[Rfam]
RNA sequence: GGACGCCCAAUACAGGACCUGGAAGACGAGGGACUCCGUCGAGGAAGAGAGACGCCAAAGGAACGUCGACCCGCCUAACCAAAGACAAUAGAGAGAGUAAACUCUUCCGACUCACCGCUGGAACCUGCCGCGUCAAGAAUCGAAGGUAAGUGGCGCGUCUCGAAAUGGGACCAAGAAUUAAGUCAGCAUCAGAUCUAUGUAGGACAAUUAAAAGAGGCUUUAAAGAUACGAGGAGUAAGGGAUUUAAAGGUUGAUUUGUUUAAAUUUUUUGAUUUUAUAAGACACAUUGGCCU
Numbered sequence: 001g002g003a004c005g006c007c008c009a010a011u012a013c014a015g016g017a018c019c020u021g022g023a024a025g026a027c028g029a030g031g032g033a034c035u036c037c038g039u040c041g042a043g044g045a046a047g048a049g050a051g052a053c054g055c056c057a058a059a060g061g062a063a064c065g066u067c068g069a070c071c072c073g074c075c076u077a078a079c080c081a082a083a084g085a086c087a088a089u090a091g092a093g094a095g096a097g098u099a100a101a102c103u104c105u106u107c108c109g110a111c112u113c114a115c116c117g118c119u120g121g122a123a124c125c126u127g128c129c130g131c132g133u134c135a136a137g138a139a140u141c142g143a144a145g146g147u148a149a150g151u152g153g154c155g156c157g158u159c160u161c162g163a164a165a166u167g168g169g170a171c172c173a174a175g176a177a178u179u180a181a182g183u184c185a186g187c188a189u190c191a192g193a194u195c196u197a198u199g200u201a202g203g204a205c206a207a208u209u210a211a212a213a214g215a216g217g218c219u220u221u222a223a224a225g226a227u228a229c230g231a232g233g234a235g236u237a238a239g240g241g242a243u244u245u246a247a248a249g250g251u252u253g254a255u256u257u258g259u260u261u262a263a264a265u266u267u268u269u270u271g272a273u274u275u276u277a278u279a280a281g282a283c284a285c286a287u288u289g290g291c292c293u
Base pairs, nucleotide, nucleotide: 006032007031008030037054038053039052040051101147102146103145106143107142112136116132117131118130120128155172158170159169160168161167179222180221181220182218183217184216229271230270231269232268233267234266235265236264239257240256241255243253282293285290
RNA: Mason-Pfizer monkey virus packaging signal
Organism: Cercocebus atys